RNA sequence: CUGGGAAAAGACUAGGAGAUCUUCUGCUCUAUUCCAACAUCAGUCACAAGGCACCGAGCGCCGAACACUGUGACUGAUGGGGGAGAAGACCACAGGAUCU
Numbered sequence: 001c002u003g004g005g006a007a008a009a010g011a012c013u014a015g016g017a018g019a020u021c022u023u024c025u026g027c028u029c030u031a032u033u034c035c036a037a038c039a040u041c042a043g044u045c046a047c048a049a050g051g052c053a054c055c056g057a058g059c060g061c062c063g064a065a066c067a068c069u070g071u072g073a074c075u076g077a078u079g080g081g082g083g084a085g086a087a088g089a090c091c092a093c094a095g096g097a098u099c100u
Stems, first nucleotide, its partner, number of pairs: 001015004017100003021096003034083002038079005044073003050062003
This 100-nucleotide RNA from Orthoflavivirus murrayense belongs to the Rfam family "Flavivirus 3' UTR cis-acting replication element (CRE)". Taxonomically the source falls in Orthoflavivirus murrayense (Viruses, Riboviria, Amarillovirales, Flaviviridae). Rfam describes the family as follows. This family represents the Flavivirus 3'-SL cis-acting replication element (CRE). The family is thought to play a crucial role in replication and is thought to be needed for the formation of a 'replication complex'. Although evidence has been presented for an existence of a pseudoknot structure in this RNA, it does not appear to be well conserved across flaviviruses. Deletions of the 3' UTR of flaviviruses have been shown to be lethal for infectious clones. Rfam links the family to the GO term viral genome replication. For this family Rfam cites "Identification of specific nucleotide sequences within the conserved 3'-SL in the dengue type 2 virus genome required for replication" (Zeng et al., J Virol, 1998). The family's RNA type in Rfam is cis-regulatory element.